[Rfam]
chrB-b RNA: a 49-nucleotide RNA sequence from Phenylobacterium hankyongense.
RNA sequence: CCGGGCCGAUGCGGGCGCCCGGCCAGACGGUUCGCCGUCCAAGACCCGC
Numbered sequence: 001c002c003g004g005g006c007c008g009a010u011g012c013g014g015g016c017g018c019c020c021g022g023c024c025a026g027a028c029g030g031u032u033c034g035c036c037g038u039c040c041a042a043g044a045c046c047c048g049c
Stems, first nucleotide, its partner, number of pairs: 001022006011049005026039005
Taxonomically the source falls in Phenylobacterium (Bacteria, Pseudomonadati, Alphaproteobacteria, Caulobacteraceae). By type it is a cis-regulatory element.